[Rfam]
RNA sequence: GCUAGGAAGAGGAAGAAAGAGAGGGCUUAAGAGCAAUGGGGAUGAGAACAUGGAGGAAAGCCUAAGUUAUCGGUUCUUCACCUCUUGUGUCGAGGUGGAAAUCCCAUUGGUUUUUUCCGAUGCCUCUCAUUCCUAUCGUCCUUAAGCGCUCCUUCCUCUUACUUUUUGUU
Numbered sequence: 001g002c003u004a005g006g007a008a009g010a011g012g013a014a015g016a017a018a019g020a021g022a023g024g025g026c027u028u029a030a031g032a033g034c035a036a037u038g039g040g041g042a043u044g045a046g047a048a049c050a051u052g053g054a055g056g057a058a059a060g061c062c063u064a065a066g067u068u069a070u071c072g073g074u075u076c077u078u079c080a081c082c083u084c085u086u087g088u089g090u091c092g093a094g095g096u097g098g099a100a101a102u103c104c105c106a107u108u109g110g111u112u113u114u115u116u117c118c119g120a121u122g123c124c125u126c127u128c129a130u131u132c133c134u135a136u137c138g139u140c141c142u143u144a145a146g147c148g149c150u151c152c153u154u155c156c157u158c159u160u161a162c163u164u165u166u167u168g169u170u
Stems, first nucleotide, its partner, number of pairs: 010160004015155003021151003026146006033139002037135011049122003053118001055117006
Dot-bracket structure: .........((((.(((...(((..((((((.((..(((((((((((.(((.(.((((((...................................................))))))).)))..)))))))))))..)).))))))..))).))).))))..........
Rfam assigns this 170-nucleotide sequence from Aegilops tauschii to the family "MIR2118 microRNA precursor family". Lineage of the source: Eukaryota > Streptophytina > Euphyllophyta > Petrosaviidae > Aegilops tauschii. A search with the family's covariance model found it, with a score of 122 bits. On this family, see Johnson et al., Genome Res 2009: "Clusters and superclusters of phased small RNAs in the developing inflorescence of rice".